[Rfam]
RNA sequence: GUCCCUAGGAGGAUCUCAAGACCUACCGAUAGGAAGUGCCGUUUGACACUGCAAACAGCAGCUGCUUCUCUCCGCUGCUGGUGUCCAUCCGUAGACCAUAACCUUUGUGGUUUGGUCUAUGAUGGAGCUCCCAUCUGCAGUAGUUUGAUUCAGCUGUGGUGUGUGAUUUAAAUUGGGUCUCUGAGGGAU
Numbered sequence: 001g002u003c004c005c006u007a008g009g010a011g012g013a014u015c016u017c018a019a020g021a022c023c024u025a026c027c028g029a030u031a032g033g034a035a036g037u038g039c040c041g042u043u044u045g046a047c048a049c050u051g052c053a054a055a056c057a058g059c060a061g062c063u064g065c066u067u068c069u070c071u072c073c074g075c076u077g078c079u080g081g082u083g084u085c086c087a088u089c090c091g092u093a094g095a096c097c098a099u100a101a102c103c104u105u106u107g108u109g110g111u112u113u114g115g116u117c118u119a120u121g122a123u124g125g126a127g128c129u130c131c132c133a134u135c136u137g138c139a140g141u142a143g144u145u146u147g148a149u150u151c152a153g154c155u156g157u158g159g160u161g162u163g164u165g166a167u168u169u170a171a172a173u174u175g176g177g178u179c180u181c182u183g184a185g186g187g188a189u
Stems, first nucleotide, its partner, number of pairs: 001189005075140004080135004084126006094117005100112004
A member of the RNA family "Small nucleolar RNA Z112" from Dichanthelium oligosanthes, 189 nucleotides long.
The base pairs follow the family's consensus structure, which was predicted with PFOLD.
For this family Rfam cites "A novel gene organization: intronic snoRNA gene clusters from Oryza sativa" (Liang et al., Nucleic Acids Res, 2002).
Its Rfam clan is "SNORD49 clan".
It scores 180 bits against the family's covariance model.
Its family is annotated with RNA processing and nucleolus in the Gene Ontology.